[Rfam]
RNA sequence: UUUGGCAAGUCUGAGGCCAAAGCAGAAGUGCUCAUGGUGCAGCCUAUCAGACUUCAGUGAAUCUGCAAAUUCUGCU
Number, nucleotide and partner (000 for none) at each position: 001u000002u000003u000004g000005g000006c000007a000008a000009g000010u000011c000012u000013g000014a000015g044016g043017c042018c000019a000020a000021a076022g075023c074024a073025g072026a071027a070028g040029u039030g038031c000032u000033c000034a000035u000036g000037g000038u030039g029040c028041a000042g017043c016044c015045u000046a000047u000048c065049a064050g063051a062052c000053u060054u059055c000056a000057g000058u000059g054060a053061a000062u051063c050064u049065g048066c000067a000068a000069a000070u027071u026072c025073u024074g023075c022076u021
Rfam assigns this 76-nucleotide RNA from Crocodylus porosus to the family "Mammalian CPEB3 ribozyme". The source organism's lineage runs through Eukaryota, Eumetazoa, Deuterostomia, Dipnotetrapodomorpha and Crocodylus.